[Rfam]
RNA sequence: AUGUUAAAAAUAGCGCCAGAACUAAUUCAAUUAGUUGACGAGGACUAGGUUUAUCGAAAAAUUCGGCGGGUGACCUAGAGGUAUGAUACUACCUAAACAAUGAACAAAAAUAGUGAGUGAUCAUUAAACAAAUUCAUUCGGUAUCCUCCAU
Numbered sequence: 001a002u003g004u005u006a007a008a009a010a011u012a013g014c015g016c017c018a019g020a021a022c023u024a025a026u027u028c029a030a031u032u033a034g035u036u037g038a039c040g041a042g043g044a045c046u047a048g049g050u051u052u053a054u055c056g057a058a059a060a061a062u063u064c065g066g067c068g069g070g071u072g073a074c075c076u077a078g079a080g081g082u083a084u085g086a087u088a089c090u091a092c093c094u095a096a097a098c099a100a101u102g103a104a105c106a107a108a109a110a111u112a113g114u115g116a117g118u119g120a121u122c123a124u125u126a127a128a129c130a131a132a133u134u135c136a137u138u139c140g141g142u143a144u145c146c147u148c149c150a151u
Base pairs, nucleotide, nucleotide: 020036021035022034023033024032025031026030045078046077047076048075049074054066055065056064057063079094080093081092082091083090098141099138100137101136102135111126112125113124114123115122116121